Shown here is a 74-nucleotide RNA sequence from Dorcoceras hygrometricum, a member of the family "Plastid-ycf2 5UTR RNA".
It scores 75 bits against the family's covariance model.
NCBI's taxonomy places the organism under Eukaryota, Tracheophyta, Mesangiospermae, Didymocarpoideae, Dorcoceras.
About the family: Plastid ycf2 is a non-coding RNA (ncRNA) recognised in plastids. It was found in the prime untranslated region (5UTR) of ycf2 genes, it presents a tRNA-like motif which suggests it can be involved in mRNA maturation, particularly involved in defining the precise 5' end of the transcript.
[Rfam]
RNA sequence: GUGCAUUCAGUAGGAAUUGAACCUAUGAAUUCGUCAAUAUGAGUUAGGCGUUUUAAACAUUCGGCCAUGGAUGC
Numbered sequence: 001g002u003g004c005a006u007u008c009a010g011u012a013g014g015a016a017u018u019g020a021a022c023c024u025a026u027g028a029a030u031u032c033g034u035c036a037a038u039a040u041g042a043g044u045u046a047g048g049c050g051u052u053u054u055a056a057a058c059a060u061u062c063g064g065c066c067a068u069g070g071a072u073g074c
Stems, first nucleotide, its partner, number of pairs: 003074006010026005039068003043065003047061002050058001